[Rfam]
RNA sequence: ACAUCAUCAGCAGCAUGUCUGCUAUGAUGA
Numbered sequence: 001a002c003a004u005c006a007u008c009a010g011c012a013g014c015a016u017g018u019c020u021g022c023u024a025u026g027a028u029g030a
Stems, first nucleotide, its partner, number of pairs: 002029006009023005
RNA: Iron response element II
Organism: Danio rerio